[Rfam]
RNA sequence: UACAAUAGAAUCGGCUCCUCAAGGAUGGUCUGGCUCAUCCCCGGAAAGAUAGGGGGUGAGGCUGAUGACAACAUUUGAAGCAAUGAUGUUGAUGCUUACGUUUGGCUUACUUAUCAUAGCAGUGUUGUCACAAGACAAAAAGAAAUAGGCUCCCCUUGAGUUUUGGCAAACCAGGGACCUAUUUCUCUGUACCAAUUGAGCCGGCCGCUCAGUUGAGAGGCGACUAUUGUAUCGACCGUAGGUGUUACCAGCACCAGCG
Numbered sequence: 001u002a003c004a005a006u007a008g009a010a011u012c013g014g015c016u017c018c019u020c021a022a023g024g025a026u027g028g029u030c031u032g033g034c035u036c037a038u039c040c041c042c043g044g045a046a047a048g049a050u051a052g053g054g055g056g057u058g059a060g061g062c063u064g065a066u067g068a069c070a071a072c073a074u075u076u077g078a079a080g081c082a083a084u085g086a087u088g089u090u091g092a093u094g095c096u097u098a099c100g101u102u103u104g105g106c107u108u109a110c111u112u113a114u115c116a117u118a119g120c121a122g123u124g125u126u127g128u129c130a131c132a133a134g135a136c137a138a139a140a141a142g143a144a145a146u147a148g149g150c151u152c153c154c155c156u157u158g159a160g161u162u163u164u165g166g167c168a169a170a171c172c173a174g175g176g177a178c179c180u181a182u183u184u185c186u187c188u189g190u191a192c193c194a195a196u197u198g199a200g201c202c203g204g205c206c207g208c209u210c211a212g213u214u215g216a217g218a219g220g221c222g223a224c225u226a227u228u229g230u231a232u233c234g235a236c237c238g239u240a241g242g243u244g245u246u247a248c249c250a251g252c253a254c255c256a257g258c259g
Stems, first nucleotide, its partner, number of pairs: 001231005007225002011222001012203006018160007028150004035059003039056004067129007080095003105120003170190002204221003237259003241255006

BsrG: a 259-nucleotide RNA from Evansella caseinilytica.
bsrE, bsrG and bsrH pair through intermolecular interactions with antisense sRNAs. They form type I toxin/antitoxin system that includes an mRNA encoding for a short, toxic peptide (bsrE, bsrG and bsrH) and an antitoxin that is comprised of an antisense RNA. bsrG encodes a 39-amino-acid toxin, and the 180 nucleotide antisense sRNA called SR4 acts as the antitoxin (they overlap by 123 nucleotides). SR4 interaction with the 3'UTR of bsrG RNA promotes bsrG degradation and inhibits its translation.
Its family is annotated with autolysis and toxin activity in the Gene Ontology.
A reference for the family is Saito et al. (2008), "Novel small RNA-encoding genes in the intergenic regions of Bacillus subtilis", Gene.
The family's consensus secondary structure was predicted with WAR.